Actino-pnp RNA: an 85-nucleotide RNA sequence from Actinospica acidithermotolerans. By type it is a cis-regulatory element. NCBI's taxonomy places the organism under Bacteria, Bacillati, Actinomycetota, Actinospicaceae, Actinospica.
RNA sequence: ACCGAUCUUCGGUAGUGGCCGUCGGGAUCCACGAGCGCGCGGCACCGCCGCGCGGCGGAUCCGGCGGCUUCGAUCGGAGACCGGU
Numbered sequence: 001a002c003c004g005a006u007c008u009u010c011g012g013u014a015g016u017g018g019c020c021g022u023c024g025g026g027a028u029c030c031a032c033g034a035g036c037g038c039g040c041g042g043c044a045c046c047g048c049c050g051c052g053c054g055g056c057g058g059a060u061c062c063g064g065c066g067g068c069u070u071c072g073a074u075c076g077g078a079g080a081c082c083g084g085u
Stems, first nucleotide, its partner, number of pairs: 001085004006080002009077005017069009027060004
The base pairs follow the family's consensus structure, which is taken from published work.